[Rfam]
RNA sequence: CAAAUUAUUAUCAUCAUUCAAAAUGAAUGGUGGGUUUGCUAGUGCUUAUUUAAUUUAGAAAACCCGCCCUGGAGGCGGGUUUU
Numbered sequence: 001c002a003a004a005u006u007a008u009u010a011u012c013a014u015c016a017u018u019c020a021a022a023a024u025g026a027a028u029g030g031u032g033g034g035u036u037u038g039c040u041a042g043u044g045c046u047u048a049u050u051u052a053a054u055u056u057a058g059a060a061a062a063c064c065c066g067c068c069c070u071g072g073a074g075g076c077g078g079g080u081u082u083u
Base pairs, nucleotide, nucleotide: 011033012032013031014030015029016028017027060082061081062080063079064078065077066076067075068074